Shown here is a 123-nucleotide RNA from Thalassotalea euphylliae, a member of the family "Ribosomal S15 leader". Rfam describes the family as follows. The E. coli Ribosomal S15 gene 5' UTR can form two alternative structures. One that is a series of three hairpins, The other includes a pseudoknot. This structure causes translational regulation of the S15 protein. For this family Rfam cites "Pseudoknot and translational control in the expression of the S15 ribosomal protein" (Benard et al., Biochimie, 1996). The match comes from Rfam's covariance-model search (62 bits). Its family is annotated with regulation of translation, ncRNA-mediated in the Gene Ontology.
RNA sequence: ACGUCUUGCUGAUUUAGUGUUCGGCUUGACGCGAUUUUUAACACUAAACUAUAUAAGGUAUUUAUUAUGUCUUUAUCAACUGAGCAAAAAGCAGCUAUCGUUGCUGAAUACGCAGUUAAAGAA
Numbered sequence: 001a002c003g004u005c006u007u008g009c010u011g012a013u014u015u016a017g018u019g020u021u022c023g024g025c026u027u028g029a030c031g032c033g034a035u036u037u038u039u040a041a042c043a044c045u046a047a048a049c050u051a052u053a054u055a056a057g058g059u060a061u062u063u064a065u066u067a068u069g070u071c072u073u074u075a076u077c078a079a080c081u082g083a084g085c086a087a088a089a090a091g092c093a094g095c096u097a098u099c100g101u102u103g104c105u106g107a108a109u110a111c112g113c114a115g116u117u118a119a120a121g122a123a
Stems, first nucleotide, its partner, number of pairs: 008025005053076006